[Rfam]
RNA: Small nucleolar RNA SNORD109A
RNA sequence: AGAUCAAUGGUAAGCAUACUUGUCUGGGGAUUCUAGAUUAUUUCCAGACAUUAAUCAGAGGUUC
Dot-bracket structure: .((((......................................................)))).